[Rfam]
RNA sequence: AAGCCAACCAGUAAGUCUGCUCACCUGAGUGGGUUUCUGCAGAAAUUUAGAGAGCUGCCACGAGGAAGGCCAUGUUAUAAGCCUUAAAGACACUGAAGUCAUUAAGGCCCCUGAAAAUCGCUUAAAGA
Numbered sequence: 001a002a003g004c005c006a007a008c009c010a011g012u013a014a015g016u017c018u019g020c021u022c023a024c025c026u027g028a029g030u031g032g033g034u035u036u037c038u039g040c041a042g043a044a045a046u047u048u049a050g051a052g053a054g055c056u057g058c059c060a061c062g063a064g065g066a067a068g069g070c071c072a073u074g075u076u077a078u079a080a081g082c083c084u085u086a087a088a089g090a091c092a093c094u095g096a097a098g099u100c101a102u103u104a105a106g107g108c109c110c111c112u113g114a115a116a117a118u119c120g121c122u123u124a125a126a127g128a
Base pairs, nucleotide, nucleotide: 003059005057006056016043017042018041019040020039069121070120072118081108082107083106084105085104086103087102089100090099091098
RNA: Small nucleolar RNA SNORA33